[Rfam]
RNA sequence: UGCUGAGUGGGGUUCCUGGCACGGUGAUUUGUAAUGUGCAGAGACAAAAAUCACAUUGCCAGGGAUUACCGCUCAGUG
Numbered sequence: 001u002g003c004u005g006a007g008u009g010g011g012g013u014u015c016c017u018g019g020c021a022c023g024g025u026g027a028u029u030u031g032u033a034a035u036g037u038g039c040a041g042a043g044a045c046a047a048a049a050a051u052c053a054c055a056u057u058g059c060c061a062g063g064g065a066u067u068a069c070c071g072c073u074c075a076g077u078g
Base pairs, nucleotide, nucleotide: 001078002077004075005074006073010070011069012066013065014064015063016062017061018060019059020058021057024054025053026052027051028050029049030048

Rfam assigns this 78-nucleotide sequence from Petromyzon marinus to the family "mir-23 microRNA precursor family". Gene Ontology terms of the family: gene silencing by miRNA and RISC complex. Pairs were carried over by alignment from the consensus structure, which was predicted with PFOLD.